Rfam assigns this 123-nucleotide sequence from Maledivibacter halophilus to the family "Molybdenum/Tungsten riboswitch aptamer (Moco RNA motif)". Pairs were carried over by alignment from the consensus structure, which is taken from published work. Lineage of the source: Bacteria > Bacillati > Bacillota > Peptostreptococcales > Maledivibacter. It scores 75 bits against the family's covariance model.
[Rfam]
RNA sequence: AAUGGAAUAUUUCUCCGAAUUUGUUAGCCUAAAGAGUUAUUAGCUUAAGGGUAAUAAAUCGAAAGGGUAUAAUUGGAAACGAUUAUGCCUCCCGUAGUGGAAAGGAGAAUAGAAUGAUUUAAA
Numbered sequence: 001a002a003u004g005g006a007a008u009a010u011u012u013c014u015c016c017g018a019a020u021u022u023g024u025u026a027g028c029c030u031a032a033a034g035a036g037u038u039a040u041u042a043g044c045u046u047a048a049g050g051g052u053a054a055u056a057a058a059u060c061g062a063a064a065g066g067g068u069a070u071a072a073u074u075g076g077a078a079a080c081g082a083u084u085a086u087g088c089c090u091c092c093c094g095u096a097g098u099g100g101a102a103a104g105g106a107g108a109a110u111a112g113a114a115u116g117a118u119u120u121a122a123a
Base pairs, nucleotide, nucleotide: 003117011109012108013107014106015105016104019059020058021057022056023055024054025053026052028050029049034046035045036044037043065090066089067088068087069086070085071084072083073082074081075080091100092099